[Rfam]
Rfam assigns this 389-nucleotide RNA sequence from Paracoccus jeotgali to the family "Bacterial RNase P class A". It is annotated as a ribozyme. The base pairs follow the family's consensus structure, which is taken from published work. NCBI's taxonomy places the organism under Bacteria, Pseudomonadota, Rhodobacterales, Paracoccaceae, Paracoccus. It scores 279 bits against the family's covariance model.
RNA sequence: GCGGAUGGCCGGAUGACCGCGGGGGGUCACACCUUCGAGGAAAGUCCGGACUCCAUAAGGUAACGGUGCCGGGUAACGCCCGGCGGGGGAAACCCCAGGGAAAGCGCCACAGAGAACAGACCGCCUGCCUUCGGGCCGGCAAGGGUGAAACGGUGGGGUAAGAGCCCACCGGGGGGCUGGCAACAGACCCCGCAUGGCAAGCCCCACCGGGAGCAAUGCCGAAUAGGGAUCGCGCGUCGCAAGACAGGGCCACCUUGCCCCAGCAGAUCCGGGUUGGCAGCUUGACACCCGCAGCGAUGCGGCGUGCAGAUGAAUGGUCAUCCAUGGGGGAUGCGGCCUCGCGGCGGUGUUUCCCGGGACAGAAUCCGGCUUACAGGCCGUCCGCGUGU
Numbered sequence: 001g002c003g004g005a006u007g008g009c010c011g012g013a014u015g016a017c018c019g020c021g022g023g024g025g026g027u028c029a030c031a032c033c034u035u036c037g038a039g040g041a042a043a044g045u046c047c048g049g050a051c052u053c054c055a056u057a058a059g060g061u062a063a064c065g066g067u068g069c070c071g072g073g074u075a076a077c078g079c080c081c082g083g084c085g086g087g088g089g090a091a092a093c094c095c096c097a098g099g100g101a102a103a104g105c106g107c108c109a110c111a112g113a114g115a116a117c118a119g120a121c122c123g124c125c126u127g128c129c130u131u132c133g134g135g136c137c138g139g140c141a142a143g144g145g146u147g148a149a150a151c152g153g154u155g156g157g158g159u160a161a162g163a164g165c166c167c168a169c170c171g172g173g174g175g176g177c178u179g180g181c182a183a184c185a186g187a188c189c190c191c192g193c194a195u196g197g198c199a200a201g202c203c204c205c206a207c208c209g210g211g212a213g214c215a216a217u218g219c220c221g222a223a224u225a226g227g228g229a230u231c232g233c234g235c236g237u238c239g240c241a242a243g244a245c246a247g248g249g250c251c252a253c254c255u256u257g258c259c260c261c262a263g264c265a266g267a268u269c270c271g272g273g274u275u276g277g278c279a280g281c282u283u284g285a286c287a288c289c290c291g292c293a294g295c296g297a298u299g300c301g302g303c304g305u306g307c308a309g310a311u312g313a314a315u316g317g318u319c320a321u322c323c324a325u326g327g328g329g330g331a332u333g334c335g336g337c338c339u340c341g342c343g344g345c346g347g348u349g350u351u352u353c354c355c356g357g358g359a360c361a362g363a364a365u366c367c368g369g370c371u372u373a374c375a376g377g378c379c380g381u382c383c384g385c386g387u388g389u
Stems, first nucleotide, its partner, number of pairs: 001385010011374001012322007020037006042372003046369005051213004059256002064209005069083005084098001085096004099204002104202002106198003121144002123140003127136003152170006171193001172191004177186003217279004227270005247261003251257001286306003289302005